[Rfam]
Rfam assigns this 212-nucleotide RNA from Streptomyces echinoruber to the family "Actinobacteria sRNA Ms_IGR-5". It is annotated as a small RNA. A search with the family's covariance model found it, with a score of 77 bits.
Nucleotides: 212
Stems, first nucleotide, its partner, number of pairs: 014057003018053001059126004064121002067118002071114003145206013158176006
Number, partner (000 for none) and nucleotide at each position: 001000a002000c003000g004000c005000c006000g007000a008000a009000a010000g011000g012000a013000g014057g015056u016055g017000a018053u019000c020000c021000g022000g023000a024000g025000a026000a027000u028000g029000a030000g031000u032000g033000a034000a035000u036000c037000c038000c039000g040000g041000a042000c043000g044000a045000g046000c047000g048000a049000g050000g051000u052000g053018g054000c055016u056015g057014c058000g059126g060125g061124c062123u063000a064121g065120c066000g067118g068117c069000c070000c071114g072113c073112c074000a075000c076000c077000c078000c079000a080000c081000u082000c083000a084000g085000u086000g087000u088000g089000g090000u091000g092000c093000c094000g095000a096000g097000c098000c099000a100000g101000c102000g103000u104000g105000c106000g107000a108000g109000a110000c111000a112073g113072g114071c115000a116000c117068g118067c119000a120065g121064c122000c123062g124061g125060c126059c127000c128000a129000a130000u131000c132000c133000c134000c135000a136000g137000c138000a139000g140000u141000c142000a143000c144000c145206g146205g147204a148203c149202c150201c151200g152199c153198g154197g155196g156195c157194u158176g159175c160174c161173g162172g163171u164000a165000c166000g167000u168000c169000c170000g171163a172162c173161c174160g175159g176158c177000u178000c179000c180000u181000c182000c183000u184000u185000g186000g187000a188000g189000g190000a191000c192000u193000c194157a195156g196155c197154c198153c199152g200151c201150g202149g203148g204147u205146c206145u207000u208000c209000u210000g211000c212000g